The family of this 234-nucleotide RNA sequence from Lysinibacillus composti is "T-box leader". Rfam describes the family as follows. Uncharged tRNA acts as the effector for transcription antitermination of genes in the T-box leader family. It is annotated as a cis-regulatory leader. Gene Ontology term of the family: tRNA binding.
[Rfam]
RNA sequence: AAUAAAGCAAUGAUGAAAAAGAGUAGUAUUAUGGGAUGGCUAAGAGAACUAGCGGUUGGUGUAAGCUGGUGCAUGACAUAAUAUGAAUGGGUUUCUAGCUUCUAGUGCUGAAAUAGUAGUAGGUAUUAGCGAAUUUGUUACGUUACAACAGUUGAGAGGACUAAUUUAUGUAUUCAAUUUAGAACGCAAUAAAUUAGUCAAUGAAGGUGGCACCACGGCUUUUCCGUCCUUUGU
Numbered sequence: 001a002a003u004a005a006a007g008c009a010a011u012g013a014u015g016a017a018a019a020a021g022a023g024u025a026g027u028a029u030u031a032u033g034g035g036a037u038g039g040c041u042a043a044g045a046g047a048a049c050u051a052g053c054g055g056u057u058g059g060u061g062u063a064a065g066c067u068g069g070u071g072c073a074u075g076a077c078a079u080a081a082u083a084u085g086a087a088u089g090g091g092u093u094u095c096u097a098g099c100u101u102c103u104a105g106u107g108c109u110g111a112a113a114u115a116g117u118a119g120u121a122g123g124u125a126u127u128a129g130c131g132a133a134u135u136u137g138u139u140a141c142g143u144u145a146c147a148a149c150a151g152u153u154g155a156g157a158g159g160a161c162u163a164a165u166u167u168a169u170g171u172a173u174u175c176a177a178u179u180u181a182g183a184a185c186g187c188a189a190u191a192a193a194u195u196a197g198u199c200a201a202u203g204a205a206g207g208u209g210g211c212a213c214c215a216c217g218g219c220u221u222u223u224c225c226g227u228c229c230u231u232u233g234u
Stems, first nucleotide, its partner, number of pairs: 007099002015095004026084006037073002048070006103128007130142002159199011204231004215227004